[Rfam]
RNA sequence: AAACGUCUUCAGGGCGGGGUGCGAUUCCCCACCGGCGGUAGGUGCGCAAGCACGAGCCCGCGAGCGCUCCGGCCUUACCGCCGGGGGUCAGCAGAUCCGGUCCAAUGCCGGAGCCGACGGUAUAGUCCGGAUGAAAGAAGACGGUG
Numbered sequence: 001a002a003a004c005g006u007c008u009u010c011a012g013g014g015c016g017g018g019g020u021g022c023g024a025u026u027c028c029c030c031a032c033c034g035g036c037g038g039u040a041g042g043u044g045c046g047c048a049a050g051c052a053c054g055a056g057c058c059c060g061c062g063a064g065c066g067c068u069c070c071g072g073c074c075u076u077a078c079c080g081c082c083g084g085g086g087g088u089c090a091g092c093a094g095a096u097c098c099g100g101u102c103c104a105a106u107g108c109c110g111g112a113g114c115c116g117a118c119g120g121u122a123u124a125g126u127c128c129g130g131a132u133g134a135a136a137g138a139a140g141a142c143g144g145u146g
Stems, first nucleotide, its partner, number of pairs: 004143007017029003031126002033116002035061004056114002064092002096112005118129003
Dot-bracket structure: ...(((((((......(((.......))).[[((((((.................[[))))..((.........................))...(((((.......)))))]])).(((....]]))).......)))))))...
Overview
Rfam assigns this 146-nucleotide sequence from Stenotrophomonas maltophilia to the family "FMN riboswitch aptamer (RFN element)". The base pairs follow the family's consensus structure, which is taken from published work. The RFN element is a highly conserved domain that is found frequently in the 5'-untranslated regions of prokaryotic mRNAs that encode for flavin mononucleotide (FMN) biosynthesis and transport proteins. This element is a metabolite-dependent riboswitch that directly binds FMN in the absence of proteins. In Bacillus subtilis, the riboswitch most likely controls gene expression by causing premature transcription termination within the 5' untranslated region of the ribDEAHT operon and precluding access to the ribosome-binding site of ypaA mRNA.The FMN riboswitch structure, reported in present an FMN-bound six-stem junction, adopts a butterfly-like scaffold, stapled together by opposingly directed but nearly identically folded peripheral domains.